[Rfam]
A member of the RNA family "mir-4872 microRNA precursor family" from Branchiostoma floridae, 81 nucleotides long.
RNA sequence: UCACAUGUGGUGCCGGGGUAAAUAAAACUCUGAGUUAUCUCAGAUCAGCUUCAGAGUUUUGUUACCCCGGCUCUCUGUGGG
Numbered sequence: 001u002c003a004c005a006u007g008u009g010g011u012g013c014c015g016g017g018g019u020a021a022a023u024a025a026a027a028c029u030c031u032g033a034g035u036u037a038u039c040u041c042a043g044a045u046c047a048g049c050u051u052c053a054g055a056g057u058u059u060u061g062u063u064a065c066c067c068c069g070g071c072u073c074u075c076u077g078u079g080g081g
Stems, first nucleotide, its partner, number of pairs: 001081002004079004009074002012071006019064003024060010034049002
About this RNA:
The organism belongs to Branchiostoma, within Eukaryota.